[Rfam]
RNA: Purine riboswitch aptamer
Organism: Virgibacillus indicus
RNA sequence: UCUUUAAUUGAAUACUAUUUUCAUAUAAUCGCGGGGAUAUGGCCUGCAAGUUUCUACCGGUUUACCGUAAAUAAACCGACUAUGAGAAGCAGCGGAAUGAUU
Numbered sequence: 001u002c003u004u005u006a007a008u009u010g011a012a013u014a015c016u017a018u019u020u021u022c023a024u025a026u027a028a029u030c031g032c033g034g035g036g037a038u039a040u041g042g043c044c045u046g047c048a049a050g051u052u053u054c055u056a057c058c059g060g061u062u063u064a065c066c067g068u069a070a071a072u073a074a075a076c077c078g079a080c081u082a083u084g085a086g087a088a089g090c091a092g093c094g095g096a097a098u099g100a101u102u
Stems, first nucleotide, its partner, number of pairs: 018088008029049001031047005058078007